Rfam assigns this 87-nucleotide RNA sequence from Shewanella fodinae to the family "t44 RNA". Pairs were carried over by alignment from the consensus structure, which was predicted with LocARNA. Rfam's curators write: This family consists of a number of bacterial RNA genes of between 135 and 170 bases in length.
[Rfam]
RNA sequence: UUGUUUUAAAUACUAAAUCACACACGAGUCGACACAUUUCCCGGGGUGCCUUAAAGGUCGGGAAUAUGGGAUUCGUGGAGGUAUAAC
Number, nucleotide and partner (000 for none) at each position: 001u000002u000003g000004u000005u000006u000007u000008a000009a000010a000011u000012a000013c000014u000015a000016a000017a000018u000019c000020a000021c000022a000023c077024a076025c075026g074027a073028g072029u071030c070031g000032a000033c000034a000035c068036a067037u066038u000039u064040c062041c061042c060043g059044g000045g000046g000047u000048g058049c057050c056051u055052u000053a000054a000055a051056g050057g049058u048059c043060g042061g041062g040063a000064a039065u000066a037067u036068g035069g000070g030071a029072u028073u027074c026075g025076u024077g023078g000079a000080g000081g000082u000083a000084u000085a000086a000087c000